[Rfam]
RNA sequence: GAGAUAUGAUGAAUAAUAUAAUUGGUCCGUGUUUCUGAAUAAUAUUUGAUUGAUAAACCUUACCAACCUCUGAUCUC
Number, nucleotide and partner (000 for none) at each position: 001g077002a076003g075004a074005u000006a000007u000008g000009a000010u000011g000012a000013a000014u000015a000016a000017u000018a000019u000020a000021a000022u000023u000024g000025g000026u000027c000028c000029g000030u000031g000032u000033u000034u000035c000036u000037g000038a000039a000040u000041a000042a000043u000044a000045u000046u000047u000048g000049a000050u000051u000052g000053a000054u000055a000056a000057a000058c000059c000060u000061u000062a000063c000064c000065a000066a000067c000068c000069u000070c000071u000072g000073a000074u004075c003076u002077c001
RNA: Small nucleolar RNA SNORD18